[Rfam]
RNA sequence: UCGAAGUUCAUAUAAAAUGAUAAGAUUUGUCUAGUUAUUACGAAUCGUUGAAACAAAGUAGCAAUUACCCAUGUGUUUGCUUAGCAAGACAUGGGGUAUUGUACUUU
Numbered sequence: 001u002c003g004a005a006g007u008u009c010a011u012a013u014a015a016a017a018u019g020a021u022a023a024g025a026u027u028u029g030u031c032u033a034g035u036u037a038u039u040a041c042g043a044a045u046c047g048u049u050g051a052a053a054c055a056a057a058g059u060a061g062c063a064a065u066u067a068c069c070c071a072u073g074u075g076u077u078u079g080c081u082u083a084g085c086a087a088g089a090c091a092u093g094g095g096g097u098a099u100u101g102u103a104c105u106u107u
Stems, first nucleotide, its partner, number of pairs: 008020003055107006062101004069094003073090002076087002
RNA: Plastid-psbA-1 3UTR RNA